A member of the RNA family "Histone 3' UTR stem-loop" from Jaculus jaculus, 45 nucleotides long.
Taxonomically the source falls in Jaculus (Eukaryota, Teleostomi, Euteleostomi, Glires).
The family has 50 seed sequences and 44,596 matches in Rfam 15.1.
Rfam links the family to the GO term mRNA 3'-end processing by stem-loop binding and cleavage.
A search with the family's covariance model found it, with a score of 36 bits.
By type it is a cis-regulatory element.
About the family: The mRNAs of metazoan histone genes lack a poly-A tail. 3' end processing occurs at a site between a highly conserved stem-loop (modelled by this family) and a purine rich region around 20 nts downstream (the histone downstream element, or HDE). The stem-loop is bound by a 31 kDa stem-loop binding protein (SLBP - also termed the histone hairpin binding protein, or HBP). Together with U7 snRNA binding of the HDE, SLBP binding nucleate s the formation of the processing complex. The histone 3' UTR stem-loop is also involved in nucleocytoplasmic transport of the mRNA, and in stability regulation and translation efficiency in the cytoplasm.
Nucleotides: 045
Base pairs, nucleotide, nucleotide: 006021007020008019009018010017011016
Number, partner (000 for none) and nucleotide at each position: 001000a002000c003000a004000a005000a006021g007020g008019c009018c010017c011016u012000u013000u014000u015000c016011a017010g018009g019008g020007c021006c022000c023000c024000c025000c026000a027000c028000a029000a030000a031000a032000u033000c034000a035000c036000a037000a038000a039000a040000g041000a042000g043000c044000u045000a